[Rfam]
RNA sequence: AGCCGCAUUGAUUGGAUCGGGAAACUCAUCAAACUAUUAUGAAAUACCGAGACAAGCUUCGCUUCUCGAUGGCGGGCCACGCCCUUCGGGGUAACUUUGAGUCGGUGGAUUACAAAGAGGACGAGCGCUCAAAUCAUGUCAUUCGGAGUUUCAUCACAUCAUCGGUGCGGCUUUUUUA
Numbered sequence: 001a002g003c004c005g006c007a008u009u010g011a012u013u014g015g016a017u018c019g020g021g022a023a024a025c026u027c028a029u030c031a032a033a034c035u036a037u038u039a040u041g042a043a044a045u046a047c048c049g050a051g052a053c054a055a056g057c058u059u060c061g062c063u064u065c066u067c068g069a070u071g072g073c074g075g076g077c078c079a080c081g082c083c084c085u086u087c088g089g090g091g092u093a094a095c096u097u098u099g100a101g102u103c104g105g106u107g108g109a110u111u112a113c114a115a116a117g118a119g120g121a122c123g124a125g126c127g128c129u130c131a132a133a134u135c136a137u138g139u140c141a142u143u144c145g146g147a148g149u150u151u152c153a154u155c156a157c158a159u160c161a162u163c164g165g166u167g168c169g170g171c172u173u174u175u176u177u178a
Base pairs, nucleotide, nucleotide: 056126057125058124060123061122063121064120065119066118067117070114071113077108078107079106080105082091083090084089094102095101096100
RNA: Bacteroidales-1 6S-Bacteroidales RNA suggested
Organism: Bacteroides intestinalis